[Rfam]
RNA sequence: UUGGGUACCAGUUCACCUUAAGGCACACAUAUUACGAAAUUGCGCAAGCGAUUAUUCACAAUGCCUGAGUAAGUUCUGAGAUGCCGUUAAUUCGAAAGAAUAUGAGACUUCCUCCAGAAAUCUAUUUCACUCUGACUUAGAGAAGAGGAUUGAAAAAUCUGAUCGUUAGAGUGAAAGUGAGAAGGGGGUUUGGCAUAGCAUAUUAAGUGCAAUAGGUGAUAUCCAAUUCAAUUCAGGCUACUCGGUACCUAA
Numbered sequence: 001u002u003g004g005g006u007a008c009c010a011g012u013u014c015a016c017c018u019u020a021a022g023g024c025a026c027a028c029a030u031a032u033u034a035c036g037a038a039a040u041u042g043c044g045c046a047a048g049c050g051a052u053u054a055u056u057c058a059c060a061a062u063g064c065c066u067g068a069g070u071a072a073g074u075u076c077u078g079a080g081a082u083g084c085c086g087u088u089a090a091u092u093c094g095a096a097a098g099a100a101u102a103u104g105a106g107a108c109u110u111c112c113u114c115c116a117g118a119a120a121u122c123u124a125u126u127u128c129a130c131u132c133u134g135a136c137u138u139a140g141a142g143a144a145g146a147g148g149a150u151u152g153a154a155a156a157a158u159c160u161g162a163u164c165g166u167u168a169g170a171g172u173g174a175a176a177g178u179g180a181g182a183a184g185g186g187g188g189u190u191u192g193g194c195a196u197a198g199c200a201u202a203u204u205a206a207g208u209g210c211a212a213u214a215g216g217u218g219a220u221a222u223c224c225a226a227u228u229c230a231a232u233u234c235a236g237g238c239u240a241c242u243c244g245g246u247a248c249c250u251a252a
Base pairs, nucleotide, nucleotide: 001252002251003250004249007246008245009244013219014218015217016216017215018214021066022065023064024063038053039052040051041050042049043048076236077235078234079233080232082195083194084193085192090101091100092099093098106191107190109188110187111186112185125176126175127174
Shown here is a 252-nucleotide RNA from Paramecium octaurelia, a member of the family "Nuclear RNase P". Ribonuclease P (RNase P) is a ubiquitous endoribonuclease, found in archaea, bacteria and eukarya as well as chloroplasts and mitochondria. Pairs were carried over by alignment from the consensus structure, which is taken from published work.